[Rfam]
RNA sequence: CAAGGUUUGAGGUCAUAGCAGAAGUGCUCCUGGCACAUUCUCAGAUUCCAGUGAAUCUGCAAAUUCUGCU
Numbered sequence: 001c002a003a004g005g006u007u008u009g010a011g012g013u014c015a016u017a018g019c020a021g022a023a024g025u026g027c028u029c030c031u032g033g034c035a036c037a038u039u040c041u042c043a044g045a046u047u048c049c050a051g052u053g054a055a056u057c058u059g060c061a062a063a064u065u066c067u068g069c070u
Stems, first nucleotide, its partner, number of pairs: 017070007024036003042059007
RNA: Mammalian CPEB3 ribozyme